[Rfam]
RNA sequence: UCCCCGUGCGCUUCUAGCAAGCAGCCUGCGCCCCAGAGAGUACCGGAGCGCCGCGGGUCGGUCCCCGGCGCACCGGGCCAUGCAGUGGAGGCCGCGGCGGAGCUCCGAGCGGCGGUAGCGCCCCCUGUGAAUUGGCCCGCGAUGCCCCGGCCACUGUGAACGGUGCUGACGGCGGGAAUACGCUGAAACCAGGACAAGCUGAGCCUCGGACACAGUCGACUCAGCGCGCCCGCAGCAAGCUCAGAGGACUCGGGAGAGCGGCGAGCGCGGGGAAGGCCUCCCCGCACCGGCUGGGGAAGCCGGCCGGUGCCUCGCGGGGACAGGCGCUCGAGCUGGCACUGGCGGCCAGGG
Numbered sequence: 001u002c003c004c005c006g007u008g009c010g011c012u013u014c015u016a017g018c019a020a021g022c023a024g025c026c027u028g029c030g031c032c033c034c035a036g037a038g039a040g041u042a043c044c045g046g047a048g049c050g051c052c053g054c055g056g057g058u059c060g061g062u063c064c065c066c067g068g069c070g071c072a073c074c075g076g077g078c079c080a081u082g083c084a085g086u087g088g089a090g091g092c093c094g095c096g097g098c099g100g101a102g103c104u105c106c107g108a109g110c111g112g113c114g115g116u117a118g119c120g121c122c123c124c125c126u127g128u129g130a131a132u133u134g135g136c137c138c139g140c141g142a143u144g145c146c147c148c149g150g151c152c153a154c155u156g157u158g159a160a161c162g163g164u165g166c167u168g169a170c171g172g173c174g175g176g177a178a179u180a181c182g183c184u185g186a187a188a189c190c191a192g193g194a195c196a197a198g199c200u201g202a203g204c205c206u207c208g209g210a211c212a213c214a215g216u217c218g219a220c221u222c223a224g225c226g227c228g229c230c231c232g233c234a235g236c237a238a239g240c241u242c243a244g245a246g247g248a249c250u251c252g253g254g255a256g257a258g259c260g261g262c263g264a265g266c267g268c269g270g271g272g273a274a275g276g277c278c279u280c281c282c283c284g285c286a287c288c289g290g291c292u293g294g295g296g297a298a299g300c301c302g303g304c305c306g307g308u309g310c311c312u313c314g315c316g317g318g319g320a321c322a323g324g325c326g327c328u329c330g331a332g333c334u335g336g337c338a339c340u341g342g343c344g345g346c347c348a349g350g351g
Stems, first nucleotide, its partner, number of pairs: 001296004006291002010287001021043001023041001026036003045281004050277003056110001058108004064100002066097001068095003073091002077086002112157005118152001120151003127145003133139002161272001164269003168266001172262002176259001181256001183254002187250001190247001195218001197216001200210001203207001221245002224242001228240002299347001301345001303343008313332001315330004